[Rfam]
RNA sequence: AGCAUCCUUCGGGGCAGGGUGAAAUUCCCUACCGACGGUGAUGGCGCCAGAAGCAUGAAGAUGGACGGCGCACAAGUCCGUGACCUGUAUACAGCACUUGGAGUUGUAUAUGGCUGAGCCGGUGAGAUUCCGGGACCGACAGUAUAGUCUGGAUGGGAGAAGGAGACG
Numbered sequence: 001a002g003c004a005u006c007c008u009u010c011g012g013g014g015c016a017g018g019g020u021g022a023a024a025u026u027c028c029c030u031a032c033c034g035a036c037g038g039u040g041a042u043g044g045c046g047c048c049a050g051a052a053g054c055a056u057g058a059a060g061a062u063g064g065a066c067g068g069c070g071c072a073c074a075a076g077u078c079c080g081u082g083a084c085c086u087g088u089a090u091a092c093a094g095c096a097c098u099u100g101g102a103g104u105u106g107u108a109u110a111u112g113g114c115u116g117a118g119c120c121g122g123u124g125a126g127a128u129u130c131c132g133g134g135a136c137c138g139a140c141a142g143u144a145u146a147g148u149c150u151g152g153a154u155g156g157g158a159g160a161a162g163g164a165g166a167c168g
Stems, first nucleotide, its partner, number of pairs: 005164006017029003031148002033138002035081004076136002085113006119133004140151003
Dot-bracket structure: ....((((((......(((.......))).[[((((((.....................................[[))))...((((((.................)))))).....((((.......)))).]])).(((....]]))).......))))))....